[Rfam]
Nucleotides: 122
Stems, first nucleotide, its partner, number of pairs: 001122004060086006
Number, partner (000 for none) and nucleotide at each position: 001122g002121c003120u004119c005000u006000a007000u008000g009000a010000u011000g012000a013000u014000a015000a016000u017000c018000c019000u020000a021000a022000g023000g024000c025000u026000u027000g028000u029000u030000u031000c032000u033000c034000a035000a036000g037000a038000c039000a040000u041000u042000c043000g044000c045000a046000g047000u048000g049000g050000c051000c052000g053000a054000c055000u056000a057000a058000g059000a060086a061085c062084u063083u064082u065081c066000g067000c068000c069000u070000u071000c072000g073000c074000c075000a076000a077000g078000c079000u080000u081065g082064a083063g084062a085061g086060u087000u088000a089000a090000u091000g092000c093000u094000g095000c096000u097000u098000u099000a100000u101000c102000c103000u104000u105000c106000c107000u108000u109000g110000g111000a112000u113000g114000u115000c116000u117000g118000a119004g120003a121002g122001u